The family of this 120-nucleotide sequence from Nitratireductor aestuarii is "Rhizobiales sRNA Atu_C8". A search with the family's covariance model found it, with a score of 95 bits. NCBI's taxonomy places the organism under Bacteria, Pseudomonadati, Pseudomonadota, Alphaproteobacteria, Nitratireductor. By type it is a small RNA.

[Rfam]
RNA sequence: CAUGACAACGAACAUUCUUCUCGUGGUGGGUAGGCACAUGGGCAAGGCGGCGUAGCCGCCAGGCAUCAGCCGCUCAUGUGCAAACAAAGGCUCCUUCGGGGGCCUUUUUUAUUGUCGAUU
Dot-bracket structure: ........(................)..((((.(((((((((...(((((.....)))))..((....))..))))))))).....((((((((....))))))))......))))....